[Rfam]
RNA: Xanthomonas sRNA sX2
RNA sequence: ACCAGCUGUGCAGCCUUAGAGCAUCUAGGCAGCUUAAAGGGUGCAGGCAUCCGCAGUUGGACCAUCUUCGCUGACCGACAGGCACCGCGCAUUGCGCGGUGUCUUCGUUU
Numbered sequence: 001a002c003c004a005g006c007u008g009u010g011c012a013g014c015c016u017u018a019g020a021g022c023a024u025c026u027a028g029g030c031a032g033c034u035u036a037a038a039g040g041g042u043g044c045a046g047g048c049a050u051c052c053g054c055a056g057u058u059g060g061a062c063c064a065u066c067u068u069c070g071c072u073g074a075c076c077g078a079c080a081g082g083c084a085c086c087g088c089g090c091a092u093u094g095c096g097c098g099g100u101g102u103c104u105u106c107g108u109u110u
Stems, first nucleotide, its partner, number of pairs: 002060008010033002013030002016028004039052005077108001080105003085099005